[Rfam]
RNA sequence: ACGGGAUCUGUCCCGUUGAAAGGAAUGUAGCUCGUUAAAGAGCCGAACCUUAGG
Number, nucleotide and partner (000 for none) at each position: 001a016002c015003g014004g013005g012006a000007u000008c000009u000010g000011u000012c005013c004014c003015g002016u001017u000018g000019a000020a000021a050022g049023g048024a000025a000026u000027g000028u000029a000030g043031c042032u041033c040034g000035u000036u000037a000038a000039a000040g033041a032042g031043c030044c000045g000046a000047a000048c023049c022050u021051u000052a000053g000054g000

The record is a 54-nucleotide RNA sequence, which matches "eL15-Euryarchaeota ribosomal protein leader" in Rfam. On this family, see Eckert and Weinberg, BMC Microbiol 2020: "Discovery of 20 novel ribosomal leader candidates in bacteria and archaea". It is one of the family's seed sequences.